RNA: U4 spliceosomal RNA
RNA sequence: AUCUUUGCGCUUGGGGCAAUGACACAACUAGUGAGGUUCUAAUUGAGGUGCAUCUAUUGCUGGUUGAAAACUAUUUCCAAACCCCUUCUUCGGCCUAGGUUCUCCCUUGGCCGUUGAGAAAUUUUAUAAAGGCUCCCUUCGGGGUUUAAGCC
Numbered sequence: 001a002u003c004u005u006u007g008c009g010c011u012u013g014g015g016g017c018a019a020u021g022a023c024a025c026a027a028c029u030a031g032u033g034a035g036g037u038u039c040u041a042a043u044u045g046a047g048g049u050g051c052a053u054c055u056a057u058u059g060c061u062g063g064u065u066g067a068a069a070a071c072u073a074u075u076u077c078c079a080a081a082c083c084c085c086u087u088c089u090u091c092g093g094c095c096u097a098g099g100u101u102c103u104c105c106c107u108u109g110g111c112c113g114u115u116g117a118g119a120a121a122u123u124u125u126a127u128a129a130a131g132g133c134u135c136c137c138u139u140c141g142g143g144g145u146u147u148a149a150g151c152c
Stems, first nucleotide, its partner, number of pairs: 021054002025050001027049003035044003086118003091113005097107001098105002131152004